Rfam assigns this 90-nucleotide RNA from Pseudooceanicola marinus to the family "Glycine riboswitch aptamer".
Its family is annotated with glycine biosynthetic process in the Gene Ontology.

RNA sequence: UCCUGUCGGAACGGGAGAACUGGCCGCAAGGCCGGUGCCGAAGGAGCAACCGCCCCGGAAACUCUCAGGCUUCAGGACCGCCCGACAGUC
Numbered sequence: 001u002c003c004u005g006u007c008g009g010a011a012c013g014g015g016a017g018a019a020c021u022g023g024c025c026g027c028a029a030g031g032c033c034g035g036u037g038c039c040g041a042a043g044g045a046g047c048a049a050c051c052g053c054c055c056c057g058g059a060a061a062c063u064c065u066c067a068g069g070c071u072u073c074a075g076g077a078c079c080g081c082c083c084g085a086c087a088g089u090c
Base pairs, nucleotide, nucleotide: 005086006085007084008083009082012080013079014078020035021034022033023032037070038069039068040066041065044064045063046062050058051057